Shown here is a 525-nucleotide RNA sequence from Malassezia globosa, a member of the family "Nuclear RNase P". Its family is annotated with ribonuclease P complex, ribonuclease P activity and tRNA processing in the Gene Ontology. Ribonuclease P (RNase P) is a ubiquitous endoribonuclease, found in archaea, bacteria and eukarya as well as chloroplasts and mitochondria. Its best characterised activity is the generation of mature 5'-ends of tRNAs by cleaving the 5'-leader elements of precursor-tRNAs. Cellular RNase Ps are ribonucleoproteins. NCBI's taxonomy places the organism under Eukaryota, Dikarya, Malasseziomycetes, Malasseziaceae, Malassezia globosa.
[Rfam]
RNA sequence: UUACCCCAAAGGCCACUGGUACUCGCCUAUAUGCUGCGUUAUGCAGCCCUGCGAGUGGGAAGGUCCGCGUGCGCCUCUUUGUUCUAUCUCGCAGGGAGAGACAGAUGGCCGUUUGAUUCGCUGACUUAGAAGCUUGUUUGUGUAUGCUGCUCGUCAGUAAUGCUAGAAGGGACUGGCUGUCUCUACAACUCUUGCUGGGUGAAUGGCGUAGCGCCAUAAGGUUGGCCUGUAACAGAAAAGGCUCUUGCGCGGUAGGUCUGAGUGGAGCUUUCCCCGAUCAGUUCGCUCGGAAACACAUUCAGGCAAUGCAGGCGGAGAUUGGAAUCGGGUCUACUUGAUGAGAUCUGCCAGAAUCCCUUCUUUGCGUGAUACUUGCAAGCUGUACCUAGGACAGGAUUUGAGCGGUUGUCUGAAAGUCAUGGAAUGACCUGGGGCAAAGAGGUCGCUUGAUAUUGUCAAGCUUGAGUGCAAUCAGUGGCGUCUCUUAUACAGAGCAAACUCGACGCGAGACUACUCUUGGAGUAA
Numbered sequence: 001u002u003a004c005c006c007c008a009a010a011g012g013c014c015a016c017u018g019g020u021a022c023u024c025g026c027c028u029a030u031a032u033g034c035u036g037c038g039u040u041a042u043g044c045a046g047c048c049c050u051g052c053g054a055g056u057g058g059g060a061a062g063g064u065c066c067g068c069g070u071g072c073g074c075c076u077c078u079u080u081g082u083u084c085u086a087u088c089u090c091g092c093a094g095g096g097a098g099a100g101a102c103a104g105a106u107g108g109c110c111g112u113u114u115g116a117u118u119c120g121c122u123g124a125c126u127u128a129g130a131a132g133c134u135u136g137u138u139u140g141u142g143u144a145u146g147c148u149g150c151u152c153g154u155c156a157g158u159a160a161u162g163c164u165a166g167a168a169g170g171g172a173c174u175g176g177c178u179g180u181c182u183c184u185a186c187a188a189c190u191c192u193u194g195c196u197g198g199g200u201g202a203a204u205g206g207c208g209u210a211g212c213g214c215c216a217u218a219a220g221g222u223u224g225g226c227c228u229g230u231a232a233c234a235g236a237a238a239a240g241g242c243u244c245u246u247g248c249g250c251g252g253u254a255g256g257u258c259u260g261a262g263u264g265g266a267g268c269u270u271u272c273c274c275c276g277a278u279c280a281g282u283u284c285g286c287u288c289g290g291a292a293a294c295a296c297a298u299u300c301a302g303g304c305a306a307u308g309c310a311g312g313c314g315g316a317g318a319u320u321g322g323a324a325u326c327g328g329g330u331c332u333a334c335u336u337g338a339u340g341a342g343a344u345c346u347g348c349c350a351g352a353a354u355c356c357c358u359u360c361u362u363u364g365c366g367u368g369a370u371a372c373u374u375g376c377a378a379g380c381u382g383u384a385c386c387u388a389g390g391a392c393a394g395g396a397u398u399u400g401a402g403c404g405g406u407u408g409u410c411u412g413a414a415a416g417u418c419a420u421g422g423a424a425u426g427a428c429c430u431g432g433g434g435c436a437a438a439g440a441g442g443u444c445g446c447u448u449g450a451u452a453u454u455g456u457c458a459a460g461c462u463u464g465a466g467u468g469c470a471a472u473c474a475g476u477g478g479c480g481u482c483u484c485u486u487a488u489a490c491a492g493a494g495c496a497a498a499c500u501c502g503a504c505g506c507g508a509g510a511c512u513a514c515u516c517u518u519g520g521a522g523u524a525a
Stems, first nucleotide, its partner, number of pairs: 001525004007519003012479007021056005036044002065509001066507004188200004203217005224332002227329002243317001482494004
By type it is a ribozyme.